[Rfam]
RNA sequence: CCCGCUUCGGCGGGACGAAAUGUGGACGGCCGGGGCGCAUCGCGUCUCGCCGUCUGAAUCGCAAG
Numbered sequence: 001c002c003c004g005c006u007u008c009g010g011c012g013g014g015a016c017g018a019a020a021u022g023u024g025g026a027c028g029g030c031c032g033g034g035g036c037g038c039a040u041c042g043c044g045u046c047u048c049g050c051c052g053u054c055u056g057a058a059u060c061g062c063a064a065g
Base pairs, nucleotide, nucleotide: 001014002013003012004011005010016061017060018059024055025054026053027052028051029050030049